[Rfam]
RNA sequence: ACUAAAACGUUGAAGAGAAGAGUAGUUUUUGGCCGCUUGUAAAGAGAGCUCCUGGUUGCUGAGAUGGAGCCUUGCGAAAGAAAAUGAAGAUGAGCUCGGAGUUUGAUUAACGGUGCAAGCUGUUAAUCCGUUGAGAUGCGAUAUAAUUGACGGCUUGAUUAAAAGAGCUAGUGAGGCCUAGAGUGUGAGCUUUAGGCGAAUAAAGGUGGUACCACGGUUUUCGUCCUUGUU
Numbered sequence: 001a002c003u004a005a006a007a008c009g010u011u012g013a014a015g016a017g018a019a020g021a022g023u024a025g026u027u028u029u030u031g032g033c034c035g036c037u038u039g040u041a042a043a044g045a046g047a048g049c050u051c052c053u054g055g056u057u058g059c060u061g062a063g064a065u066g067g068a069g070c071c072u073u074g075c076g077a078a079a080g081a082a083a084a085u086g087a088a089g090a091u092g093a094g095c096u097c098g099g100a101g102u103u104u105g106a107u108u109a110a111c112g113g114u115g116c117a118a119g120c121u122g123u124u125a126a127u128c129c130g131u132u133g134a135g136a137u138g139c140g141a142u143a144u145a146a147u148u149g150a151c152g153g154c155u156u157g158a159u160u161a162a163a164a165g166a167g168c169u170a171g172u173g174a175g176g177c178c179u180a181g182a183g184u185g186u187g188a189g190c191u192u193u194a195g196g197c198g199a200a201u202a203a204a205g206g207u208g209g210u211a212c213c214a215c216g217g218u219u220u221u222c223g224u225c226c227u228u229g230u231u
Base pairs, nucleotide, nucleotide: 007102008101015097016096017095025085026084027083028082029081030080039071048070049069050068051067052066105128106127107126108125109124110123111122129140130139131138176197177196178195179194180193181192182191203228204227205226206225214224215223216222217221
RNA: T-box leader